[Rfam]
RNA sequence: UACUAUUAAACCCUAUCUCCACCUCCACGUGGUGACCGCUGGGAGGUCUUUCUUAACGAAAAACUGCAGACGAAGAAGG
Numbered sequence: 001u002a003c004u005a006u007u008a009a010a011c012c013c014u015a016u017c018u019c020c021a022c023c024u025c026c027a028c029g030u031g032g033u034g035a036c037c038g039c040u041g042g043g044a045g046g047u048c049u050u051u052c053u054u055a056a057c058g059a060a061a062a063a064c065u066g067c068a069g070a071c072g073a074a075g076a077a078g079g
Base pairs, nucleotide, nucleotide: 012079013078014077016075018073019072021033022032023031045065046064047063049061050060051059052058

Shown here is a 79-nucleotide sequence from Hermetia illucens, a member of the family "drz-agam-1 ribozyme". For this family Rfam cites "Widespread occurrence of self-cleaving ribozymes" (Webb et al., Science, 2009). A search with the family's covariance model found it, with a score of 40 bits. Rfam links the family to the GO term catalytic activity. Rfam 15.1 lists 10,507 matches to the family in 53 species. NCBI's taxonomy places the organism under Eukaryota, Dicondylia, Stratiomyidae, Hermetiinae, Hermetia.